This 89-nucleotide sequence from Canis lupus belongs to the Rfam family "mir-8799 microRNA precursor family". The source organism's lineage runs through Eukaryota, Opisthokonta, Chordata, Canis and Canis lupus. The match comes from Rfam's covariance-model search (67 bits). Pairs were carried over by alignment from the consensus structure, which was predicted with RNAalifold.
RNA sequence: AGGGGGAGGCCGGAUUCUGGGCUGUGUCCUGGCGCCCUGUGCUCCAGUGCCUGCGCUUUUGAUUCCCCCUCCAGGCCACACAGCCGCCU
Numbered sequence: 001a002g003g004g005g006g007a008g009g010c011c012g013g014a015u016u017c018u019g020g021g022c023u024g025u026g027u028c029c030u031g032g033c034g035c036c037c038u039g040u041g042c043u044c045c046a047g048u049g050c051c052u053g054c055g056c057u058u059u060u061g062a063u064u065c066c067c068c069c070u071c072c073a074g075g076c077c078a079c080a081c082a083g084c085c086g087c088c089u
Base pairs, nucleotide, nucleotide: 001089002088003087005085006084009081012077013076016075017074019072020071021070024067026065027062028061031057032056033055034054035053039051041050042049